[Rfam]
RNA: Z30 small nucleolar RNA
Organism: Cottoperca gobio
RNA sequence: CUGCAGUGAUGAGUUAGAUGUGACUGAUCUGGUAUUGCUUUUCCUCCGGGGACGCUCUGACCAGGGAAUGAUAACUUAAUCUUCUCUCUGAGCAG
Numbered sequence: 001c002u003g004c005a006g007u008g009a010u011g012a013g014u015u016a017g018a019u020g021u022g023a024c025u026g027a028u029c030u031g032g033u034a035u036u037g038c039u040u041u042u043c044c045u046c047c048g049g050g051g052a053c054g055c056u057c058u059g060a061c062c063a064g065g066g067a068a069u070g071a072u073a074a075c076u077u078a079a080u081c082u083u084c085u086c087u088c089u090g091a092g093c094a095g
Stems, first nucleotide, its partner, number of pairs: 003093002037055002040052001